[Rfam]
The record is a 131-nucleotide sequence from Rattus norvegicus, which matches "Small nucleolar RNA SNORA17" in Rfam. Rfam links the family to the GO terms nucleolus and RNA processing. The match comes from Rfam's covariance-model search (109 bits). Rfam's curators write: snoRNA ACA 17 belongs to the H/ACA family of snoRNAs and is predicted to guide pseudouridylation of the 28S rRNA at positions U4659 and U4598. It shares the same host gene together with ACA43. NB This family has a high threshold value to exclude a large number of closely related sequences that do not appear to have conserved H and ACA boxes, and may be pseudogenes. Clan: SNORA17 clan.
RNA sequence: ACUGCCCCUAGAGAAACUGCAGGUGUGGCUGCUGUGUCACGUGUGUGUCAGUAGGUGGCAGAGAGGAGAGGCUAUGUCUAUGUUCAAUAUUCCGACCUGCGAACAUCUGAAUAGAUUAGUAGCCUAAUGCU
Dot-bracket structure: .(((((((((..((....(((..((((((......))))))..))).))..)))).))))).......(((((((.....((.(((.(.(((........))).)..))).)).....)))))))......